Description:
The family of this 311-nucleotide RNA from Adiantum capillus-veneris is "Metazoan signal recognition particle RNA". On this family, see Wild et al., Curr Opin Struct Biol 2002: "Towards the structure of the mammalian signal recognition particle". The signal recognition particle (SRP) is a universally conserved ribonucleoprotein. It is involved in the co-translational targeting of proteins to membranes. The eukaryotic SRP consists of a 300-nucleotide 7S RNA and six proteins: SRPs 72, 68, 54, 19, 14, and 9.
Nucleotides: 311
Base pairs, nucleotide, nucleotide: 001040002039003038004019005018006017007016008015009014024037025036026035045309046308047307048306049305050304051303052302057298058297059296060295062293065288070286071285077284078283079282081281082280083279084278085277087272088271089270090269094267095266096265097264098263099262100261108257109256110255111253112252113251115246116245119244120243121242122241123240125237126236127235129233130232131231132230134174135173137171138170139169140168142167143166144165145164146163147162149160150159151158152157175181176180183227184226185225186224187223194218195217196216202211203210204209
Number, partner (000 for none) and nucleotide at each position: 001040c002039c003038c004019g005018g006017g007016u008015g009014a010000u011000c012000u013000c014009u015008c016007g017006c018005c019004u020000g021000u022000a023000a024037u025036c026035c027000g028000c029000a030000g031000c032000u033000g034000u035026g036025g037024a038003g039002g040001g041000g042000c043000a044000c045309g046308g047307g048306c049305u050304g051303a052302g053000c054000c055000u056000a057298u058297g059296g060295a061000u062293g063000g064000a065288g066000u067000u068000g069000c070286g071285g072000a073000g074000g075000g076000c077284c078283g079282g080000u081281c082280a083279g084278g085277u086000c087272c088271g089270g090269a091000a092000a093000u094267g095266u096265u097264g098263u099262a100261c101000a102000a103000u104000c105000u106000g107000u108257g109256g110255c111253g112252c113251g114000c115246c116245c117000g118000u119244c120243u121242c122241c123240a124000a125237g126236c127235u128000u129233g130232g131231a132230g133000u134174g135173g136000a137171g138170g139169c140168a141000c142167g143166g144165c145164a146163u147162c148000c149160u150159c151158u152157c153000g154000u155000a156000g157152g158151g159150g160149a161000a162147g163146g164145u165144g166143u167142c168140u169139g170138u171137c172000c173135u174134c175181c176180u177000u178000g179000a180176a181175g182000u183227g184226g185225g186224g187223g188000g189000g190000a191000c192000c193000g194218c195217g196216u197000g198000u199000a200000g201000g202211c203210c204209g205000g206000c207000a208000a209204c210203g211202g212000a213000g214000c215000g216196a217195c218194g219000a220000a221000u222000a223187c224186c225185c226184c227183c228000c229000u230132c231131u232130c233129c234000c235127g236126g237125c238000a239000g240123u241122g242121g243120a244119g245116g246115g247000a248000u249000a250000a251113c252112g253111c254000u255110g256109c257108c258000c259000u260000c261100g262099u263098g264097c265096a266095g267094c268000c269090u270089c271088c272087g273000a274000u275000c276000a277085a278084c279083c280082u281081g282079c283078c284077g285071u286070c287000c288065c289000c290000g291000c292000u293062c294000c295060u296059c297058c298057a299000c300000a301000c302052c303051u304050c305049a306048g307047c308046c309045c310000c311000c